[Rfam]
RNA: Bacterial large subunit ribosomal RNA, nucleotides 9 to 558
Organism: Parabacteroides chinchillae
RNA sequence: AAGCAAGGGCAGACGGUGGAUGCCUAGGCUCUCGGAGGCGACGAAGGACGUGAUAAGCUGCGAUAAGCUUGGGGUAGGUGCAAAUAACCAUUGAUCCCAGGAUUUCCGAAUGGGGCAACCCGUCAGGUUGAAGGCCUGUCACCAUGUAACCAUGGAGCGAACGUGGGGAACUGAAACAUCUAAGUACCCAUAGGAGAAGAAAACAAAAGUGAUUCCGCAAGUAGUGGCGAGCGAACGCGGAAGAGCCCAAACCAAUGCUGUUUAGGCAGUAUUGGGGUUGUAGGACCACGCUAUAGCAAGAAGUUAUCGAAAUAGAACGUUUUGGAAAGAACGGCCAUAGACGGUGAAAGCCCGGUAUAUGACUCUUUAAUGAAGCUUAGUGGUAUCCUGAGUAGCGCGGGGCACGAGAAAUCCUGUGUGAACCAGCGGGGCCCAUCCCGUAAGGCUAAAUACUCCCGAGAGACCGAUAGUGAACCAGUACCGUGAGGGAAAGGUGAAAAGAACCUCGAACAGAGGAGUGAAAUAGUCCCUGAACCCGUCUGCCUACAAG
Numbered sequence: 001a002a003g004c005a006a007g008g009g010c011a012g013a014c015g016g017u018g019g020a021u022g023c024c025u026a027g028g029c030u031c032u033c034g035g036a037g038g039c040g041a042c043g044a045a046g047g048a049c050g051u052g053a054u055a056a057g058c059u060g061c062g063a064u065a066a067g068c069u070u071g072g073g074g075u076a077g078g079u080g081c082a083a084a085u086a087a088c089c090a091u092u093g094a095u096c097c098c099a100g101g102a103u104u105u106c107c108g109a110a111u112g113g114g115g116c117a118a119c120c121c122g123u124c125a126g127g128u129u130g131a132a133g134g135c136c137u138g139u140c141a142c143c144a145u146g147u148a149a150c151c152a153u154g155g156a157g158c159g160a161a162c163g164u165g166g167g168g169a170a171c172u173g174a175a176a177c178a179u180c181u182a183a184g185u186a187c188c189c190a191u192a193g194g195a196g197a198a199g200a201a202a203a204c205a206a207a208a209g210u211g212a213u214u215c216c217g218c219a220a221g222u223a224g225u226g227g228c229g230a231g232c233g234a235a236c237g238c239g240g241a242a243g244a245g246c247c248c249a250a251a252c253c254a255a256u257g258c259u260g261u262u263u264a265g266g267c268a269g270u271a272u273u274g275g276g277g278u279u280g281u282a283g284g285a286c287c288a289c290g291c292u293a294u295a296g297c298a299a300g301a302a303g304u305u306a307u308c309g310a311a312a313u314a315g316a317a318c319g320u321u322u323u324g325g326a327a328a329g330a331a332c333g334g335c336c337a338u339a340g341a342c343g344g345u346g347a348a349a350g351c352c353c354g355g356u357a358u359a360u361g362a363c364u365c366u367u368u369a370a371u372g373a374a375g376c377u378u379a380g381u382g383g384u385a386u387c388c389u390g391a392g393u394a395g396c397g398c399g400g401g402g403c404a405c406g407a408g409a410a411a412u413c414c415u416g417u418g419u420g421a422a423c424c425a426g427c428g429g430g431g432c433c434c435a436u437c438c439c440g441u442a443a444g445g446c447u448a449a450a451u452a453c454u455c456c457c458g459a460g461a462g463a464c465c466g467a468u469a470g471u472g473a474a475c476c477a478g479u480a481c482c483g484u485g486a487g488g489g490a491a492a493g494g495u496g497a498a499a500a501g502a503a504c505c506u507c508g509a510a511c512a513g514a515g516g517a518g519u520g521a522a523a524u525a526g527u528c529c530c531u532g533a534a535c536c537c538g539u540c541u542g543c544c545u546a547c548a549a550g
Base pairs, nucleotide, nucleotide: 007545008544009543010542011541012540013539014538015537016536022530023494024493027465028464029462030461031460032459033458034457035456036454037453038158039157046107047106048105049062050061051060068101069100070099071098072097073096074095077089078088079087112121113120114119122140124138125137126136127135128134142155143154144153145152146151162193163191164190165189166188167187173180174179203210204209213450214241215240216239217238218237224232225231244447245446246445247444252275253274254273255272256271257270258269282389283388284387286383287382288381289380303371304370305369306368309365310364312360313359314358318333319332320331321330322329336340342354343353344352395419396418397417398416399415400414401413402412426441427440428439429438430437481488482487504516505515506514507513